[Rfam]
A member of the RNA family "c-di-GMP-I riboswitch aptamer" from Caldalkalibacillus thermarum, 88 nucleotides long. Taxonomically the source falls in Caldalkalibacillus thermarum (Bacteria, Bacillota, Bacillaceae, Caldalkalibacillus). Pairs were carried over by alignment from the consensus structure, which is taken from published work. A search with the family's covariance model found it, with a score of 81 bits.
RNA sequence: CGUUUGAAAGGGCAAAGCUACGGAAACGUAGUGACGCAAAGCUACAGGGGCUAAGGUUGUUCAACAACUAUGCCAGCCAGCUGCCGUU
Dot-bracket structure: ...........((...((((((....))))))...))..((((...(((((....((((.....))))...)))..))))))......